[Rfam]
RNA sequence: UUGCGCCUGCGAAGGAGUCAGCGCGUCCGUUUUCAUGGCAUUGCAGGCGGCCGGACGGCGUACCCUCCCGUAUCUGGGCAAUGUGCCCAGUCAAACUGGUCCC
Numbered sequence: 001u002u003g004c005g006c007c008u009g010c011g012a013a014g015g016a017g018u019c020a021g022c023g024c025g026u027c028c029g030u031u032u033u034c035a036u037g038g039c040a041u042u043g044c045a046g047g048c049g050g051c052c053g054g055a056c057g058g059c060g061u062a063c064c065c066u067c068c069c070g071u072a073u074c075u076g077g078g079c080a081a082u083g084u085g086c087c088c089a090g091u092c093a094a095a096c097u098g099g100u101c102c103c
Stems, first nucleotide, its partner, number of pairs: 005048007014068002017065001021061004025056004037052003075089006
This 103-nucleotide sequence belongs to the Rfam family "RT-5 RNA". The family's consensus secondary structure is taken from published work. It is annotated as a small RNA.